tRNA: an 83-nucleotide RNA sequence from Gluconobacter oxydans. NCBI's taxonomy places the organism under Bacteria, Pseudomonadati, Acetobacterales, Acetobacteraceae, Gluconobacter oxydans. By type it is a transfer RNA. Rfam's curators write: Transfer RNA (tRNA) molecules are approximately 80 nucleotides in length. Its family is annotated with triplet codon-amino acid adaptor activity in the Gene Ontology.

[Rfam]
RNA sequence: GCGAGCUUGGCGGAAUGGUAGACGCACGAGACUUAAAAUCUCGAGUCCGCAAGGGCGUGCGGGUUCGAGUCCCGCAGUUCGCA
Numbered sequence: 001g002c003g004a005g006c007u008u009g010g011c012g013g014a015a016u017g018g019u020a021g022a023c024g025c026a027c028g029a030g031a032c033u034u035a036a037a038a039u040c041u042c043g044a045g046u047c048c049g050c051a052a053g054g055g056c057g058u059g060c061g062g063g064u065u066c067g068a069g070u071c072c073c074g075c076a077g078u079u080c081g082c083a
Stems, first nucleotide, its partner, number of pairs: 001082007010025003027043005059075005